This 47-nucleotide RNA from Mortierella polycephala belongs to the Rfam family "Guanidine-II riboswitch aptamer (mini-ykkC)". The base pairs follow the family's consensus structure, which is taken from published work. NCBI's taxonomy places the organism under Eukaryota, Fungi, Mortierellomycota, Mortierellomycetes, Mortierella.
[Rfam]
RNA sequence: CGGUGGGGACGACUCCGGUGGGGUCUGCUCCAGUGGGGACGACCCCG
Numbered sequence: 001c002g003g004u005g006g007g008g009a010c011g012a013c014u015c016c017g018g019u020g021g022g023g024u025c026u027g028c029u030c031c032a033g034u035g036g037g038g039a040c041g042a043c044c045c046c047g
Stems, first nucleotide, its partner, number of pairs: 001020002004017005034047005